[Rfam]
RNA: Rhizobiales sRNA Atu_C8
RNA sequence: GAAGAUCGCAAUGGUUCUUGCAGUGGUAGGAAAGCGCACGGGCAGGAUGGUGUAACCAUCCGGCGACAGCCACUCGUGCGCGACAAACAGGCUCCCGACGGGGCCUUUUUUAUGCCCGAA
Numbered sequence: 001g002a003a004g005a006u007c008g009c010a011a012u013g014g015u016u017c018u019u020g021c022a023g024u025g026g027u028a029g030g031a032a033a034g035c036g037c038a039c040g041g042g043c044a045g046g047a048u049g050g051u052g053u054a055a056c057c058a059u060c061c062g063g064c065g066a067c068a069g070c071c072a073c074u075c076g077u078g079c080g081c082g083a084c085a086a087a088c089a090g091g092c093u094c095c096c097g098a099c100g101g102g103g104c105c106u107u108u109u110u111u112a113u114g115c116c117c118g119a120a
Stems, first nucleotide, its partner, number of pairs: 009026001029116002032113001034081009045061006063070002087107001089106007